[Rfam]
The record is a 110-nucleotide RNA sequence from Paenibacillus apis, which matches "epsC RNA" in Rfam. Pairs were carried over by alignment from the consensus structure, which is taken from published work. Rfam 15.1 lists 450 matches to the family in 334 species. By type it is a cis-regulatory element. A search with the family's covariance model found it, with a score of 107 bits.

RNA sequence: AGGUAAUGUCUCCUGCACCUUUAUCACUGGAGGCACUCGAUCAUGCUGUGGGUCAGUGACCUUAGACGUUUGUCGUCAGGGGUGUGAUGUGAGGAAGGGUUCAAUGCCCU
Dot-bracket structure: [[[[..(((((((...]]]]........)))))))((((((((((((..(((((...)))))..((((.....))))...)))))))).))))..(((((.....)))))